[Rfam]
RNA sequence: UUAUAUCUUCAGGGCAGGGUGUGAAUCCCUACCGGCGGUAUAGCCCGCGAGCUUUAUAAAAGCAGAUUCGGUGUAACUCCGAAGCCGACAGUAUAGUCUGGAUGAAAGAAGGUAACC
Numbered sequence: 001u002u003a004u005a006u007c008u009u010c011a012g013g014g015c016a017g018g019g020u021g022u023g024a025a026u027c028c029c030u031a032c033c034g035g036c037g038g039u040a041u042a043g044c045c046c047g048c049g050a051g052c053u054u055u056a057u058a059a060a061a062g063c064a065g066a067u068u069c070g071g072u073g074u075a076a077c078u079c080c081g082a083a084g085c086c087g088a089c090a091g092u093a094u095a096g097u098c099u100g101g102a103u104g105a106a107a108g109a110a111g112g113u114a115a116c117c
Stems, first nucleotide, its partner, number of pairs: 004114007017029003031097002033087002035048004043085002051063003067083005089100003

The family of this 117-nucleotide RNA from Clostridium chromiireducens is "FMN riboswitch aptamer (RFN element)". Its family is annotated with FMN binding in the Gene Ontology. It scores 120 bits against the family's covariance model. The base pairs follow the family's consensus structure, which is taken from published work.